This 61-nucleotide RNA sequence from Leptolinea tardivitalis belongs to the Rfam family "Fluoride riboswitch aptamer (crcB RNA motif)".
The match comes from Rfam's covariance-model search (40 bits).

RNA sequence: AUUUCCGUUGGUGAUGAGGCUCACCCGAAACCGUCCUUUGACUGAUAGCCUCUACUGAAUU
Dot-bracket structure: .........[[[[..((((((]]]].......(((....)))....)))))).........
Numbered sequence: 001a002u003u004u005c006c007g008u009u010g011g012u013g014a015u016g017a018g019g020c021u022c023a024c025c026c027g028a029a030a031c032c033g034u035c036c037u038u039u040g041a042c043u044g045a046u047a048g049c050c051u052c053u054a055c056u057g058a059a060u061u
Stems, first nucleotide, its partner, number of pairs: 010025004016052006033042003